[Rfam]
RNA sequence: AGAGUGGAACAGGUGAUCGCGGCUGCAGGCGCCGAAAGGACGCAGCUGAGGAAAGUCCGGGCUUCACAGGGCAGGAUGCCGGAUAACGUCCGGUGGAGGCGACUCCAAGGAUAGUGCAACAGAAAUAUACCGCAGGAUUUUCGAAUCCUGUAAGGGUGGAAGGGCAGUGCAAGAGACUACCGCCCGGCUGGUGACAGCCGGGGCAUAUGUAAACCCCAUCCGAAGCAAGACCGAACAGGAAGCGUACGCGGCCCGCCAGCUUCAGGUAGGUCGCUAAAGGCAGCUGGCGACAGCUGUAUCAGACAGAUGAUCACCCAACGACAUAACCCGGCUUAUCGUUCCGCUCUUUUU
Numbered sequence: 001a002g003a004g005u006g007g008a009a010c011a012g013g014u015g016a017u018c019g020c021g022g023c024u025g026c027a028g029g030c031g032c033c034g035a036a037a038g039g040a041c042g043c044a045g046c047u048g049a050g051g052a053a054a055g056u057c058c059g060g061g062c063u064u065c066a067c068a069g070g071g072c073a074g075g076a077u078g079c080c081g082g083a084u085a086a087c088g089u090c091c092g093g094u095g096g097a098g099g100c101g102a103c104u105c106c107a108a109g110g111a112u113a114g115u116g117c118a119a120c121a122g123a124a125a126u127a128u129a130c131c132g133c134a135g136g137a138u139u140u141u142c143g144a145a146u147c148c149u150g151u152a153a154g155g156g157u158g159g160a161a162g163g164g165c166a167g168u169g170c171a172a173g174a175g176a177c178u179a180c181c182g183c184c185c186g187g188c189u190g191g192u193g194a195c196a197g198c199c200g201g202g203g204c205a206u207a208u209g210u211a212a213a214c215c216c217c218a219u220c221c222g223a224a225g226c227a228a229g230a231c232c233g234a235a236c237a238g239g240a241a242g243c244g245u246a247c248g249c250g251g252c253c254c255g256c257c258a259g260c261u262u263c264a265g266g267u268a269g270g271u272c273g274c275u276a277a278a279g280g281c282a283g284c285u286g287g288c289g290a291c292a293g294c295u296g297u298a299u300c301a302g303a304c305a306g307a308u309g310a311u312c313a314c315c316c317a318a319c320g321a322c323a324u325a326a327c328c329c330g331g332c333u334u335a336u337c338g339u340u341c342c343g344c345u346c347u348u349u350u351u
Stems, first nucleotide, its partner, number of pairs: 001347010011336001012315007020048007053334003057331005062225004069254004074221005079093005094108001095106004109216002114214002116210003130155002132151008163181002166178003182204001183202008229272004239263005248256002280297007
RNA: Bacterial RNase P class A